This 167-nucleotide RNA sequence from Mesorhizobium sp. L-8-10 belongs to the Rfam family "Brucella sRNA CI27".
For this family Rfam cites "Identification of novel sRNAs in Brucella abortus 2308" (Dong et al., FEMS Microbiol Lett, 2014).
The family's RNA type in Rfam is small RNA.
[Rfam]
RNA sequence: GUCCGUUGAAGCAUGUCUCCCGAAAGUGGGAACCGGUUUCGGGACAAAGACAUGCGCAAGAACAAACAGCUAAAGCGCGUAAAGCGAAUUUGAAAGAUCGCGACGCGCUUUAGCUGUGCUUUAACCGACGCUGCCCGUUUCGGCAAUCGGGCCCGACGCUCUUUCGC
Numbered sequence: 001g002u003c004c005g006u007u008g009a010a011g012c013a014u015g016u017c018u019c020c021c022g023a024a025a026g027u028g029g030g031a032a033c034c035g036g037u038u039u040c041g042g043g044a045c046a047a048a049g050a051c052a053u054g055c056g057c058a059a060g061a062a063c064a065a066a067c068a069g070c071u072a073a074a075g076c077g078c079g080u081a082a083a084g085c086g087a088a089u090u091u092g093a094a095a096g097a098u099c100g101c102g103a104c105g106c107g108c109u110u111u112a113g114c115u116g117u118g119c120u121u122u123a124a125c126c127g128a129c130g131c132u133g134c135c136c137g138u139u140u141c142g143g144c145a146a147u148c149g150g151g152c153c154c155g156a157c158g159c160u161c162u163u164u165c166g167c
Stems, first nucleotide, its partner, number of pairs: 011055008020043002024039004029034001058163004063158001066117015085100003133152005139146002
Dot-bracket structure: ..........((((((((.((..((((.(....).))))..))....))))))))..((((.(..(((((((((((((((....(((..........)))..)))))))))))))))...............(((((.((....)).))))).....).))))....